[Rfam]
RNA sequence: UGGUAGCCCCGAUAGCAGUGGAAAUCCUUUUGGUACGCCUUUUUUUGGCGUGCCAAAAGAUUGUAGCGAAUAGCGGGAGGGAUG
Numbered sequence: 001u002g003g004u005a006g007c008c009c010c011g012a013u014a015g016c017a018g019u020g021g022a023a024a025u026c027c028u029u030u031u032g033g034u035a036c037g038c039c040u041u042u043u044u045u046u047g048g049c050g051u052g053c054c055a056a057a058a059g060a061u062u063g064u065a066g067c068g069a070a071u072a073g074c075g076g077g078a079g080g081g082a083u084g
Stems, first nucleotide, its partner, number of pairs: 009076003013072002018067002023062004029057011

A member of the RNA family "Flavo-1 RNA" from Flavobacterium muglaense, 84 nucleotides long. NCBI's taxonomy places the organism under Bacteria, Pseudomonadati, Flavobacteriia, Flavobacteriaceae, Flavobacterium.